[Rfam]
RNA sequence: UGGAGUGAAAUAUGGGAUUACAACUAUAUUCACGACGUGAAAUAGGGGAUUACACUGUUUUUAAAACGGAAAGUGAAUCAAUUAACAUAAUAGACUCCU
Numbered sequence: 001u002g003g004a005g006u007g008a009a010a011u012a013u014g015g016g017a018u019u020a021c022a023a024c025u026a027u028a029u030u031c032a033c034g035a036c037g038u039g040a041a042a043u044a045g046g047g048g049a050u051u052a053c054a055c056u057g058u059u060u061u062u063a064a065a066a067c068g069g070a071a072a073g074u075g076a077a078u079c080a081a082u083u084a085a086c087a088u089a090a091u092a093g094a095c096u097c098c099u
Base pairs, nucleotide, nucleotide: 002098003097004096011092012091013090015088018085019084022083023082025080028078029077030076031075032074033073036068037067038066039061040060041059042058043057044056045055
Notes: Rfam assigns this 99-nucleotide RNA from Nicotiana tabacum to the family "MIR6152 microRNA precursor family". The match comes from Rfam's covariance-model search (77 bits). Taxonomically the source falls in Nicotiana (Eukaryota, Tracheophyta, Pentapetalae, lamiids). The family's consensus secondary structure was predicted with RNAalifold.